Proteobacterial sRNA sX6: a 360-nucleotide RNA from Stenotrophomonas panacihumi. Pairs were carried over by alignment from the consensus structure, which was predicted with RNAalifold. It is annotated as a small RNA.
RNA sequence: AAGCCGACAGGAGGAACCGCCAUGAAGACCCGUCACAUCCUGAUGCUGGCCGCCGGCGUCGCCGCGCUGGCCGCCAUCCCGCUCGCCAUGGCCCAGCAGAAGGGUGGCCAGACCGAGGCGCUGGACCAGCGCGGUGCGCAGGCGCAGCAGACCGCCGACGAGCAGGCCAACGCCGAAGCCCAGGCGCGCGCCCAGCGUCGUGCCGCCGCCGCCGCGCAGAAGGAUCGCGCCGUGAAGGAAGGCAAGGUCGGCGCCAAGGAAGAGGAAGAGGAAAAGCCGCUGCGCUGAUCCCGCCCGCAUCGAGUACAUGCCAGGCGCCCCGGUUCCGGCCGGGGCGCCUGCUUUUUUGUGAGAGCGUCG
Numbered sequence: 001a002a003g004c005c006g007a008c009a010g011g012a013g014g015a016a017c018c019g020c021c022a023u024g025a026a027g028a029c030c031c032g033u034c035a036c037a038u039c040c041u042g043a044u045g046c047u048g049g050c051c052g053c054c055g056g057c058g059u060c061g062c063c064g065c066g067c068u069g070g071c072c073g074c075c076a077u078c079c080c081g082c083u084c085g086c087c088a089u090g091g092c093c094c095a096g097c098a099g100a101a102g103g104g105u106g107g108c109c110a111g112a113c114c115g116a117g118g119c120g121c122u123g124g125a126c127c128a129g130c131g132c133g134g135u136g137c138g139c140a141g142g143c144g145c146a147g148c149a150g151a152c153c154g155c156c157g158a159c160g161a162g163c164a165g166g167c168c169a170a171c172g173c174c175g176a177a178g179c180c181c182a183g184g185c186g187c188g189c190g191c192c193c194a195g196c197g198u199c200g201u202g203c204c205g206c207c208g209c210c211g212c213c214g215c216g217c218a219g220a221a222g223g224a225u226c227g228c229g230c231c232g233u234g235a236a237g238g239a240a241g242g243c244a245a246g247g248u249c250g251g252c253g254c255c256a257a258g259g260a261a262g263a264g265g266a267a268g269a270g271g272a273a274a275a276g277c278c279g280c281u282g283c284g285c286u287g288a289u290c291c292c293g294c295c296c297g298c299a300u301c302g303a304g305u306a307c308a309u310g311c312c313a314g315g316c317g318c319c320c321c322g323g324u325u326c327c328g329g330c331c332g333g334g335g336c337g338c339c340u341g342c343u344u345u346u347u348u349g350u351g352a353g354a355g356c357g358u359c360g
Stems, first nucleotide, its partner, number of pairs: 020265002027196001041188002044186003047182002055080002058077002061074002085152001087150001134145004165180003200255001202254002238249002282358004296302002310342001312341013